[Rfam]
RNA sequence: CCGUGCUAGGUGGGGAGGUAGCGGUGCCCUGUAACCCGCAAUCCGCUGUAGCGGGGCUGAAUUCCAAUCCGAGGCUUUAUUCAGUUUAUAGCAGGUCUAUCAGUCCUGUGUUGAAGAUUGGGUCCUACGCAACGAGCACUUCUGAACCGUGUCAGAUCCGGAAGGAAGCAGCACUAAGGGAGAUCGUUCGUGUGCCGUAGGGUGGCCUGAUCCGAGCAAGAGUGGUAGGUGCCGUAUAGGUUGUUUGAGUCAGAGAUUGGUGCACGG
Numbered sequence: 001c002c003g004u005g006c007u008a009g010g011u012g013g014g015g016a017g018g019u020a021g022c023g024g025u026g027c028c029c030u031g032u033a034a035c036c037c038g039c040a041a042u043c044c045g046c047u048g049u050a051g052c053g054g055g056g057c058u059g060a061a062u063u064c065c066a067a068u069c070c071g072a073g074g075c076u077u078u079a080u081u082c083a084g085u086u087u088a089u090a091g092c093a094g095g096u097c098u099a100u101c102a103g104u105c106c107u108g109u110g111u112u113g114a115a116g117a118u119u120g121g122g123u124c125c126u127a128c129g130c131a132a133c134g135a136g137c138a139c140u141u142c143u144g145a146a147c148c149g150u151g152u153c154a155g156a157u158c159c160g161g162a163a164g165g166a167a168g169c170a171g172c173a174c175u176a177a178g179g180g181a182g183a184u185c186g187u188u189c190g191u192g193u194g195c196c197g198u199a200g201g202g203u204g205g206c207c208u209g210a211u212c213c214g215a216g217c218a219a220g221a222g223u224g225g226u227a228g229g230u231g232c233c234g235u236a237u238a239g240g241u242u243g244u245u246u247g248a249g250u251c252a253g254a255g256a257u258u259g260g261u262g263c264a265c266g267g
Stems, first nucleotide, its partner, number of pairs: 001267006009058003012030004017025001019023001035055005064260006073251005082243009094233002096229006104221002107218003116212008124201006130192002133190005139182005149174004157166003